The family of this 159-nucleotide sequence from Facklamia languida is "M-box riboswitch aptamer (ykoK leader)". The pairing is the family consensus, mapped onto this sequence. About the family: M-box riboswitch, also know as ykoK leader is described as a metaloregulatory RNA that sense divalent metals and function as a genetic control element of genes related to divalent metal transport in bacteria. The organism belongs to Facklamia languida, within Bacteria.
[Rfam]
RNA sequence: UUAAUUAAGAGGUAGGUGAGGCUACUGAUAGGAUAUGGGUUACCACCGCGUAUCGAUGGAGACAUUGAGAGUUGGUUAACAGUUUGGAUCGACGAUAAGGUUUAGACUAGUGUAAUUUCACCGCCUAUCAAAGCUAAAGCUUGAACGAUUGAUAGCUCA
Numbered sequence: 001u002u003a004a005u006u007a008a009g010a011g012g013u014a015g016g017u018g019a020g021g022c023u024a025c026u027g028a029u030a031g032g033a034u035a036u037g038g039g040u041u042a043c044c045a046c047c048g049c050g051u052a053u054c055g056a057u058g059g060a061g062a063c064a065u066u067g068a069g070a071g072u073u074g075g076u077u078a079a080c081a082g083u084u085u086g087g088a089u090c091g092a093c094g095a096u097a098a099g100g101u102u103u104a105g106a107c108u109a110g111u112g113u114a115a116u117u118u119c120a121c122c123g124c125c126u127a128u129c130a131a132a133g134c135u136a137a138a139g140c141u142u143g144a145a146c147g148a149u150u151g152a153u154a155g156c157u158c159a
Stems, first nucleotide, its partner, number of pairs: 005155003010150001011146001013098001015141003020135003026130007039116005045076004055066004082107004088101003